[Rfam]
RNA sequence: UAACCCGUCAUUGGGGAGUAGCCAGCCGCGCGUGCGCGGACCCUGCGUCAACACACUUGGUCGAGAGGCCAUGGCGUAGGGAGGGUGGCAGGAUCGCAACGAUCCGGCAUCUUGGGCGAGACCAAUGGCAUGGUGCCUUCUGCCGGCCGGGCGGGGGGUGCGAUGCCAUUGCCUGUCUCUGUCGCCCGGCCCU
Numbered sequence: 001u002a003a004c005c006c007g008u009c010a011u012u013g014g015g016g017a018g019u020a021g022c023c024a025g026c027c028g029c030g031c032g033u034g035c036g037c038g039g040a041c042c043c044u045g046c047g048u049c050a051a052c053a054c055a056c057u058u059g060g061u062c063g064a065g066a067g068g069c070c071a072u073g074g075c076g077u078a079g080g081g082a083g084g085g086u087g088g089c090a091g092g093a094u095c096g097c098a099a100c101g102a103u104c105c106g107g108c109a110u111c112u113u114g115g116g117c118g119a120g121a122c123c124a125a126u127g128g129c130a131u132g133g134u135g136c137c138u139u140c141u142g143c144c145g146g147c148c149g150g151g152c153g154g155g156g157g158g159u160g161c162g163a164u165g166c167c168a169u170u171g172c173c174u175g176u177c178u179c180u181g182u183c184g185c186c187c188g189g190c191c192c193u
Stems, first nucleotide, its partner, number of pairs: 026039003041081010058071005082193005088187001

Shown here is a 193-nucleotide RNA from Novosphingobium fluoreni, a member of the family "Manganese Mn2+ riboswitch aptamer (yybP-ykoY)". Taxonomically the source falls in Novosphingobium (Bacteria, Alphaproteobacteria, Sphingomonadales, Sphingomonadaceae). The family has 29 seed sequences and 1,126 matches in Rfam 15.1. The pairing is the family consensus, mapped onto this sequence. This RNA was originally discovered in E. coli during a large scale screen and was named SraF. The family was later found to exist upstream of related families of protein genes in many bacteria, including the the yybP and ykoK genes in B. subtilis. The specific functions of these proteins are unknown, but this structured RNA element may be involved in their genetic regulation as a riboswitch.